[Rfam]
RNA sequence: CGAGUCGCGGCGGGAGAGCCCCCGGAUCCCUGGGGGCACCGAAGGAGCAACGACCCCGCCAAUCUCUCAGGUACCCGUACCGCCGUGACCAG
Numbered sequence: 001c002g003a004g005u006c007g008c009g010g011c012g013g014g015a016g017a018g019c020c021c022c023c024g025g026a027u028c029c030c031u032g033g034g035g036g037c038a039c040c041g042a043a044g045g046a047g048c049a050a051c052g053a054c055c056c057c058g059c060c061a062a063u064c065u066c067u068c069a070g071g072u073a074c075c076c077g078u079a080c081c082g083c084c085g086u087g088a089c090c091a092g
Base pairs, nucleotide, nucleotide: 006087007086008085009084010083011082012081013080020036021035022034023033038072039071040070041068042067045066046065047064
Rfam assigns this 92-nucleotide RNA from Beutenbergia cavernae to the family "Glycine riboswitch aptamer". The source organism's lineage runs through Bacteria, Bacillati, Actinomycetota, Beutenbergia and Beutenbergia cavernae.